[Rfam]
RNA sequence: AUCUUAUCCAGAGUGACUGAGGGACCAGGCCUGUUGACGUCACAGCAACCUUCCUAGCGGAGUGGUGCUACCUCCUGCAGAAUGGUGAUUCAUUCUGAAAGAUAAGGA
Numbered sequence: 001a002u003c004u005u006a007u008c009c010a011g012a013g014u015g016a017c018u019g020a021g022g023g024a025c026c027a028g029g030c031c032u033g034u035u036g037a038c039g040u041c042a043c044a045g046c047a048a049c050c051u052u053c054c055u056a057g058c059g060g061a062g063u064g065g066u067g068c069u070a071c072c073u074c075c076u077g078c079a080g081a082a083u084g085g086u087g088a089u090u091c092a093u094u095c096u097g098a099a100a101g102a103u104a105a106g107g108a
Stems, first nucleotide, its partner, number of pairs: 002107007013043005021032003026077004044069004049065002051062004073100001078097006
The record is a 108-nucleotide sequence from Sediminibacillus albus, which matches "SAM riboswitch aptamer (S box leader)" in Rfam. Pairs were carried over by alignment from the consensus structure, which is taken from published work. A search with the family's covariance model found it, with a score of 79 bits. Its family is annotated with regulation of gene expression in the Gene Ontology.